[Rfam]
Notes: Shown here is a 114-nucleotide sequence from Selenihalanaerobacter shriftii, a member of the family "SAM riboswitch aptamer (S box leader)". The match comes from Rfam's covariance-model search (94 bits). From the family's description: The SAM riboswitch is found upstream of a number of genes which code for proteins involved in methionine or cysteine biosynthesis in Gram-positive bacteria. The SAM riboswitch acts at the level of transcription termination control. The predicted structure consists of a complex stem-loop region followed by a single stem loop terminator region. An alternative and mutually exclusive form involves bases in the 3' segment of helix 1 with those in the 5' region of helix 5 to form a structure termed the anti-terminator form. This entry represents the conserved core of the complex structure involving helices 1-4. For this family Rfam cites "The S box regulon: a new global transcription termination control system for methionine and cysteine biosynthesis genes in gram-positive bacteria" (Grundy and Henkin, Mol Microbiol, 1998).
RNA sequence: CUCUUAUUAAGAGUGGCUGAGGGACUGGCCCGAUGAAGCCCGGCAACCGGCAUUCGUUUAGAAUGCAAUGGUGCCAAAUCCUGCAACGAAAAAAUUUUCGUUGAGAGAUGAGAG
Numbered sequence: 001c002u003c004u005u006a007u008u009a010a011g012a013g014u015g016g017c018u019g020a021g022g023g024a025c026u027g028g029c030c031c032g033a034u035g036a037a038g039c040c041c042g043g044c045a046a047c048c049g050g051c052a053u054u055c056g057u058u059u060a061g062a063a064u065g066c067a068a069u070g071g072u073g074c075c076a077a078a079u080c081c082u083g084c085a086a087c088g089a090a091a092a093a094a095u096u097u098u099c100g101u102u103g104a105g106a107g108a109u110g111a112g113a114g
Base pairs, nucleotide, nucleotide: 001114002113003112004111005110006109007108008107013041015040016039017038021031022030023029025083027081028080042075043074044073045072047071048070050066051065052064053063054062079106084103085102086101087100088099089098